RNA sequence: UAUUGAGCCAAUGAAGAAUCUGAAGGAAGCCCUAGUCAAAACUGUGAUCUAAGCUCGGUGCGAACCUGUGGUAGGCAGGCAUGAUGGGUAAGGUAGCCACGAUUACCGAAGCCAUAUAAUUCCCCGUAACGUCAUGUCUGUAUAACAGGUAGAUUACAGUGAUCGAGAGACUGA
Number, nucleotide and partner (000 for none) at each position: 001u017002a000003u015004u014005g000006a012007g000008c000009c000010a000011a000012u006013g000014a004015a003016g000017a001018a000019u000020c000021u000022g000023a000024a000025g000026g000027a000028a000029g000030c173031c000032c000033u170034a000035g000036u166037c165038a000039a000040a000041a160042c159043u158044g157045u156046g155047a154048u153049c152050u151051a150052a000053g000054c000055u000056c000057g000058g000059u000060g000061c000062g000063a000064a000065c149066c148067u147068g146069u145070g000071g000072u000073a000074g000075g141076c140077a139078g000079g137080c136081a135082u134083g133084a132085u131086g000087g113088g112089u111090a000091a000092g107093g106094u105095a104096g000097c000098c000099a000100c000101g000102a000103u000104u095105a094106c093107c092108g000109a000110a000111g089112c088113c087114a000115u000116a000117u000118a000119a000120u000121u000122c000123c000124c000125c000126g000127u000128a000129a000130c000131g085132u084133c083134a082135u081136g080137u079138c000139u077140g076141u075142a000143u000144a000145a069146c068147a067148g066149g065150u051151a050152g049153a048154u047155u046156a045157c044158a043159g042160u041161g000162a000163u000164c000165g037166a036167g000168a000169g000170a033171c000172u000173g030174a000

Rfam assigns this 174-nucleotide RNA from Cysteiniphilum litorale to the family "Group II catalytic intron D1-D4-3".
It scores 69 bits against the family's covariance model.
From the family's description: Group II introns are found in rRNA, tRNA and mRNA of organelles in fungi, plants and protists, and also in mRNA in bacteria.
Lineage of the source: Bacteria > Pseudomonadati > Gammaproteobacteria > Thiotrichales > Cysteiniphilum.
The pairing is the family consensus, mapped onto this sequence.
Its family is annotated with Group II intron splicing in the Gene Ontology.